[Rfam]
RNA sequence: GACCUGUGAUGUAUUUGAAUAAGAGUAGUGGACAGGAAGGAUUUCUGACAACUUUUGCUUCUGAGGUC
Numbered sequence: 001g002a003c004c005u006g007u008g009a010u011g012u013a014u015u016u017g018a019a020u021a022a023g024a025g026u027a028g029u030g031g032a033c034a035g036g037a038a039g040g041a042u043u044u045c046u047g048a049c050a051a052c053u054u055u056u057g058c059u060u061c062u063g064a065g066g067u068c
Base pairs, nucleotide, nucleotide: 001068002067003066004065
RNA: Small nucleolar RNA SNORD75
Organism: Megalops atlanticus